[Rfam]
RNA sequence: AUUUUUCCUCGUUAGGUGAGGCUCCUAUAUGGAGGUAAGCUACUGCCCAGAAACGUCGAGAGACACCAAUGGGUCAGCAGGAACGAUCGACAUAAGGUCGUUUCUAAUGUAGCCGGUGAGAGAAAUAUUCUCGUAUCCAUGCCAUAUAGUGCUAAAACUCAACGAAGGAGGAUCAUU
Numbered sequence: 001a002u003u004u005u006u007c008c009u010c011g012u013u014a015g016g017u018g019a020g021g022c023u024c025c026u027a028u029a030u031g032g033a034g035g036u037a038a039g040c041u042a043c044u045g046c047c048c049a050g051a052a053a054c055g056u057c058g059a060g061a062g063a064c065a066c067c068a069a070u071g072g073g074u075c076a077g078c079a080g081g082a083a084c085g086a087u088c089g090a091c092a093u094a095a096g097g098u099c100g101u102u103u104c105u106a107a108u109g110u111a112g113c114c115g116g117u118g119a120g121a122g123a124a125a126u127a128u129u130c131u132c133g134u135a136u137c138c139a140u141g142c143c144a145u146a147u148a149g150u151g152c153u154a155a156a157a158c159u160c161a162a163c164g165a166a167g168g169a170g171g172a173u174c175a176u177u
Base pairs, nucleotide, nucleotide: 006172007171008170009169010168011163012162013095015159016158017157020153021152022151025149026148027147028146029145030144031143032142039113040112041111042110043109045074046073047072048071049070055064056063057062080104081103082102083101086098087097088096115137116136117135
The family of this 177-nucleotide sequence from Pseudogracilibacillus auburnensis is "M-box riboswitch aptamer (ykoK leader)". The source organism's lineage runs through Bacteria, Bacilli, Caryophanales, Bacillaceae and Pseudogracilibacillus. It scores 136 bits against the family's covariance model. On this family, see Barrick et al., Proc Natl Acad Sci U S A 2004: "New RNA motifs suggest an expanded scope for riboswitches in bacterial genetic control".